[Rfam]
RNA sequence: AUCGCUUCUCGGCCUUUUGGCUAAGAUCAAAGUGUAGUAUCUGUUCUCGGUAGUGUGACAACUACCGCGACCCCCAUUGGGGGUCCGAUUGUCACUGGAAUUUUUGCAACGCGGUGGGGCUCUGGGGCUCGCUCCAUCCUUGCCUGGGUUGGCUCGGUAUUGCAGUAUCUCCGGGAUCGGCCCGUCCCUU
Numbered sequence: 001a002u003c004g005c006u007u008c009u010c011g012g013c014c015u016u017u018u019g020g021c022u023a024a025g026a027u028c029a030a031a032g033u034g035u036a037g038u039a040u041c042u043g044u045u046c047u048c049g050g051u052a053g054u055g056u057g058a059c060a061a062c063u064a065c066c067g068c069g070a071c072c073c074c075c076a077u078u079g080g081g082g083g084u085c086c087g088a089u090u091g092u093c094a095c096u097g098g099a100a101u102u103u104u105u106g107c108a109a110c111g112c113g114g115u116g117g118g119g120c121u122c123u124g125g126g127g128c129u130c131g132c133u134c135c136a137u138c139c140u141u142g143c144c145u146g147g148g149u150u151g152g153c154u155c156g157g158u159a160u161u162g163c164a165g166u167a168u169c170u171c172c173g174g175g176a177u178c179g180g181c182c183c184g185u186c187c188c189u190u
Stems, first nucleotide, its partner, number of pairs: 007026003011022004048067006069085007113144007124135004146183006153175005